[Rfam]
RNA sequence: GGAAUGUGGAGACCAGUGACCACUAUAAAAACGGGGCCAAACCGAAAAGCCUAAAGAGUAGGAAAAUA
Numbered sequence: 001g002g003a004a005u006g007u008g009g010a011g012a013c014c015a016g017u018g019a020c021c022a023c024u025a026u027a028a029a030a031a032c033g034g035g036g037c038c039a040a041a042c043c044g045a046a047a048a049g050c051c052u053a054a055a056g057a058g059u060a061g062g063a064a065a066a067u068a
Stems, first nucleotide, its partner, number of pairs: 006023004035051003042062002
Rfam assigns this 68-nucleotide RNA sequence from Mangrovibacterium diazotrophicum to the family "DUF805 RNA". A search with the family's covariance model found it, with a score of 79 bits. Its Rfam clan is "DUF805 clan".